[Rfam]
RNA sequence: GGGGGGCAAGGGGUUGGUGCCCCUCCUGGUCCGCAAAACCAGAGGUAUGGUCGGAAAACGGCUGUGGUGGGUUCGAUUCCCACUGCCCCUC
Numbered sequence: 001g002g003g004g005g006g007c008a009a010g011g012g013g014u015u016g017g018u019g020c021c022c023c024u025c026c027u028g029g030u031c032c033g034c035a036a037a038a039c040c041a042g043a044g045g046u047a048u049g050g051u052c053g054g055a056a057a058a059c060g061g062c063u064g065u066g067g068u069g070g071g072u073u074c075g076a077u078u079c080c081c082a083c084u085g086c087c088c089c090u091c
Stems, first nucleotide, its partner, number of pairs: 001091007009024006025045001026042005047065005068082004
This 91-nucleotide sequence from Candidatus Sulfobium mesophilum belongs to the Rfam family "Selenocysteine transfer RNA". It scores 55 bits against the family's covariance model. Rfam links the family to the GO term triplet codon-amino acid adaptor activity. Pairs were carried over by alignment from the consensus structure, which is taken from published work.